[Rfam]
RNA: Small nucleolar RNA SNORD70
Organism: Pogona vitticeps
RNA sequence: UGGAAGGUUGUCAAUGAUGGAAACAUGUUGACCUGAAAAUGAUGAUUUUAAUUCAACAUUUCGUCACUACCACUGAGACAACAUAACA
Numbered sequence: 001u002g003g004a005a006g007g008u009u010g011u012c013a014a015u016g017a018u019g020g021a022a023a024c025a026u027g028u029u030g031a032c033c034u035g036a037a038a039a040u041g042a043u044g045a046u047u048u049u050a051a052u053u054c055a056a057c058a059u060u061u062c063g064u065c066a067c068u069a070c071c072a073c074u075g076a077g078a079c080a081a082c083a084u085a086a087c088a
Stems, first nucleotide, its partner, number of pairs: 001088002005084001007082006